[Rfam]
RNA: Selenocysteine insertion sequence 1
Organism: Scleropages formosus
RNA sequence: ACCAGAUCAUGAUGACUUGUGCUAAAACCCACAGUGGAACGCACAAGUUUGAUCUCACCUGGU
Numbered sequence: 001a002c003c004a005g006a007u008c009a010u011g012a013u014g015a016c017u018u019g020u021g022c023u024a025a026a027a028c029c030c031a032c033a034g035u036g037g038a039a040c041g042c043a044c045a046a047g048u049u050u051g052a053u054c055u056c057a058c059c060u061g062g063u
Stems, first nucleotide, its partner, number of pairs: 001063005014049009029037003